[Rfam]
RNA: Bacterial RNase P class A
RNA sequence: CCAGACCAUCGGACGGUCGCCGCUGCACGCGAGUGUGGGGGAGGAAAGUCCGGGCUCCACGCAGCAACGGUGCCGGGUAACACCCGGCGGGGGUGACCCCAGGGAAAGUGCCACAGAGAGCAGACCGCCUGACUUUCGAGAAGGGCAAGGGUGAAAGGGUGCGGUAAGAGCGCACCGCGCGACGGGCAACCGAAGCGGCACGGCAAACCCCACCGGGAGCAAGACCGAAUAGGGACGGCGCGCACGGCAACGUGCAAGGCCCGCUGCGGCCCAGUCGUCCGGGUUGGUUGCUUGAGGCGGACGGUAACGUUCGUCCUAGAGGAAUGACCGUCUAUGGAGCGCAAGCCCCGGGACAGAACCCGGCUUACAGAUGGUCUGGCCGA
Numbered sequence: 001c002c003a004g005a006c007c008a009u010c011g012g013a014c015g016g017u018c019g020c021c022g023c024u025g026c027a028c029g030c031g032a033g034u035g036u037g038g039g040g041g042a043g044g045a046a047a048g049u050c051c052g053g054g055c056u057c058c059a060c061g062c063a064g065c066a067a068c069g070g071u072g073c074c075g076g077g078u079a080a081c082a083c084c085c086g087g088c089g090g091g092g093g094u095g096a097c098c099c100c101a102g103g104g105a106a107a108g109u110g111c112c113a114c115a116g117a118g119a120g121c122a123g124a125c126c127g128c129c130u131g132a133c134u135u136u137c138g139a140g141a142a143g144g145g146c147a148a149g150g151g152u153g154a155a156a157g158g159g160u161g162c163g164g165u166a167a168g169a170g171c172g173c174a175c176c177g178c179g180c181g182a183c184g185g186g187c188a189a190c191c192g193a194a195g196c197g198g199c200a201c202g203g204c205a206a207a208c209c210c211c212a213c214c215g216g217g218a219g220c221a222a223g224a225c226c227g228a229a230u231a232g233g234g235a236c237g238g239c240g241c242g243c244a245c246g247g248c249a250a251c252g253u254g255c256a257a258g259g260c261c262c263g264c265u266g267c268g269g270c271c272c273a274g275u276c277g278u279c280c281g282g283g284u285u286g287g288u289u290g291c292u293u294g295a296g297g298c299g300g301a302c303g304g305u306a307a308c309g310u311u312c313g314u315c316c317u318a319g320a321g322g323a324a325u326g327a328c329c330g331u332c333u334a335u336g337g338a339g340c341g342c343a344a345g346c347c348c349c350g351g352g353a354c355a356g357a358a359c360c361c362g363g364c365u366u367a368c369a370g371a372u373g374g375u376c377u378g379g380c381c382g383a
Base pairs, nucleotide, nucleotide: 001379002378003377004376005375006374007373008372009371010370011368012332013331014330015329016328017327018326020041021040023038024037025036026035027034028033046366047365048364050363051362052361053360054359055219056218057217058216068215069214070213071212072211073087074086075085076084077083088102089100090099091098092097103210104209108208109207110204111203112202125150126149127146128145129144130143133140134139158176159175160174161173162172163171177199178197179196180195183192184191185190223289224288225287226286233280234279235278236277237276238275258272259271261269262268296315297314298313299312300311301310302309303308